[Rfam]
RNA: Arthropod 7SK RNA
Organism: Aedes aegypti
RNA sequence: GGAGGUGUGUGUCUUCGUCUGUGAUGGCACGAUAACUGAACAUUGAUCGCUUUAGUGUUAGUUUGCAGAUCUGCUCAGUGGCAACCGUCACACCUAAAAUACAACUUGGCAGUCCGGAUCUGGUAUCACGGGUGAACUCUCGCUGCACGGCGCCGGGCCGACGCACGAUUGAUGUCAUUUGUGAUACAAGACUACUGCGUUCUUACCCAACUUUUCCAAAUUGUUGAGUAUAAAAUCGUAAUUUAAUACAGAUAGCUUAGCUUCGGAUUAAAUUACAUUGUUCAGAACGCUUCCAUAUCAUAGGGCACCGCCGAGCGGUCGGCCCAUUCUUUUG
Numbered sequence: 001g002g003a004g005g006u007g008u009g010u011g012u013c014u015u016c017g018u019c020u021g022u023g024a025u026g027g028c029a030c031g032a033u034a035a036c037u038g039a040a041c042a043u044u045g046a047u048c049g050c051u052u053u054a055g056u057g058u059u060a061g062u063u064u065g066c067a068g069a070u071c072u073g074c075u076c077a078g079u080g081g082c083a084a085c086c087g088u089c090a091c092a093c094c095u096a097a098a099a100u101a102c103a104a105c106u107u108g109g110c111a112g113u114c115c116g117g118a119u120c121u122g123g124u125a126u127c128a129c130g131g132g133u134g135a136a137c138u139c140u141c142g143c144u145g146c147a148c149g150g151c152g153c154c155g156g157g158c159c160g161a162c163g164c165a166c167g168a169u170u171g172a173u174g175u176c177a178u179u180u181g182u183g184a185u186a187c188a189a190g191a192c193u194a195c196u197g198c199g200u201u202c203u204u205a206c207c208c209a210a211c212u213u214u215u216c217c218a219a220a221u222u223g224u225u226g227a228g229u230a231u232a233a234a235a236u237c238g239u240a241a242u243u244u245a246a247u248a249c250a251g252a253u254a255g256c257u258u259a260g261c262u263u264c265g266g267a268u269u270a271a272a273u274u275a276c277a278u279u280g281u282u283c284a285g286a287a288c289g290c291u292u293c294c295a296u297a298u299c300a301u302a303g304g305g306c307a308c309c310g311c312c313g314a315g316c317g318g319u320c321g322g323c324c325c326a327u328u329c330u331u332u333u334g
Stems, first nucleotide, its partner, number of pairs: 001294008021091005036078003041073002045071004049066002304324003307319005